[Rfam]
RNA: Selenocysteine insertion sequence 1
RNA sequence: UUCUGCUUAUGAUGCUCCGUCCUUCAAACCCCAGUGGGGAUGGGCGGAGUUGAUGUUGCUGUGGAGAA
Numbered sequence: 001u002u003c004u005g006c007u008u009a010u011g012a013u014g015c016u017c018c019g020u021c022c023u024u025c026a027a028a029c030c031c032c033a034g035u036g037g038g039g040a041u042g043g044g045c046g047g048a049g050u051u052g053a054u055g056u057u058g059c060u061g062u063g064g065a066g067a068a
Base pairs, nucleotide, nucleotide: 001068002067003066004065014050015049016048017047018046019045020044021043022042030039031038032037